RNA sequence: AGCAGAGUAAGAGUAUGUGCGUUAAGUGCCAGUUGGACGGGGAGUUGCCAGUCGGACGAAAAGCAAAAUUGCUUGCGGUACAUACUCUGCAUCCCGCUGCU
Numbered sequence: 001a002g003c004a005g006a007g008u009a010a011g012a013g014u015a016u017g018u019g020c021g022u023u024a025a026g027u028g029c030c031a032g033u034u035g036g037a038c039g040g041g042g043a044g045u046u047g048c049c050a051g052u053c054g055g056a057c058g059a060a061a062a063g064c065a066a067a068a069u070u071g072c073u074u075g076c077g078g079u080a081c082a083u084a085c086u087c088u089g090c091a092u093c094c095c096g097c098u099g100c101u
Base pairs, nucleotide, nucleotide: 001101002100003099004098005097010088011087012086013085014084015083016082017081018080019079020077021076022075026057027056029055030054032052033051034050035049036048040094041093042092044090061074062073063072064071
RNA: THF (Tetrahydrofolate) riboswitch aptamer
Organism: Faecalimonas nexilis